[Rfam]
This 61-nucleotide sequence belongs to the Rfam family "Enterobacterial sRNA STnc480".
RNA sequence: GAAUAAAAAAUGCCACGGUUCUCACCGUGGCAAAAUCCAACAUAGCUUAACAAAAAAGGUG
Number, nucleotide and partner (000 for none) at each position: 001g000002a000003a000004u000005a000006a000007a000008a000009a000010a000011u000012g031013c030014c029015a028016c027017g026018g025019u024020u000021c000022u000023c000024a019025c018026c017027g016028u015029g014030g013031c012032a000033a000034a000035a000036u000037c000038c000039a000040a000041c000042a000043u000044a000045g000046c000047u000048u000049a000050a000051c000052a000053a000054a000055a000056a000057a000058g000059g000060u000061g000